[Rfam]
Nucleotides: 101
Base pairs, nucleotide, nucleotide: 003100004099005098024078025077026076027075
Number, partner (000 for none) and nucleotide at each position: 001000u002000a003100u004099u005098c006000c007000c008000a009000u010000a011000u012000g013000a014000u015000g016000a017000a018000c019000u020000a021000u022000u023000u024078c025077g026076g027075a028000u029000g030000u031000a032000a033000a034000a035000a036000c037000a038000u039000u040000u041000a042000u043000u044000c045000u046000c047000g048000g049000a050000a051000a052000g053000c054000g055000c056000a057000a058000a059000a060000a061000a062000u063000a064000a065000u066000g067000u068000c069000g070000a071000g072000a073000u074000u075027u076026c077025c078024g079000u080000u081000g082000c083000c084000u085000u086000c087000c088000u089000u090000c091000u092000g093000a094000u095000c096000g097000a098005g099004a100003a101000a